RNA sequence: ACUGUGGAGAGCUAUACAAACUGUAGUAGACAGCUUUUGAACAAAAGCGUCGAGAGCGGGGUUCUUUGAAGCAGUAA
Numbered sequence: 001a002c003u004g005u006g007g008a009g010a011g012c013u014a015u016a017c018a019a020a021c022u023g024u025a026g027u028a029g030a031c032a033g034c035u036u037u038u039g040a041a042c043a044a045a046a047g048c049g050u051c052g053a054g055a056g057c058g059g060g061g062u063u064c065u066u067u068g069a070a071g072c073a074g075u076a077a
Stems, first nucleotide, its partner, number of pairs: 001075005009064005021059003029051003033048005
RNA: RAGATH-18 RNA